[Rfam]
RNA sequence: GGUCCGGGCCGUGACUGGCGCUUGAGGUGGAUCACCACCGGGGAGCGGCCCGGCGAACGCGCGCACGCACCCCGUGCCGCCACCGCCCCGUUGCCGUGCGCCUGGGCCGACCAC
Number, nucleotide and partner (000 for none) at each position: 001g000002g000003u000004c053005c052006g051007g050008g049009c048010c047011g046012u045013g000014a000015c042016u041017g102018g101019c100020g099021c098022u000023u000024g000025a000026g000027g038028u037029g036030g035031a000032u000033c000034a000035c030036c029037a028038c027039c000040g000041g016042g015043g000044a000045g012046c011047g010048g009049c008050c007051c006052g005053g004054c000055g000056a000057a000058c000059g000060c000061g000062c000063g000064c000065a000066c000067g000068c000069a000070c000071c000072c000073c000074g000075u000076g000077c000078c000079g000080c000081c000082a000083c000084c000085g000086c000087c000088c000089c000090g000091u109092u000093g107094c106095c105096g000097u000098g021099c020100g019101c018102c017103u000104g000105g095106g094107c093108c000109g091110a000111c000112c000113a000114c000
RNA: ZMP/ZTP riboswitch aptamer (pfl RNA motif)
Organism: Streptomyces laurentii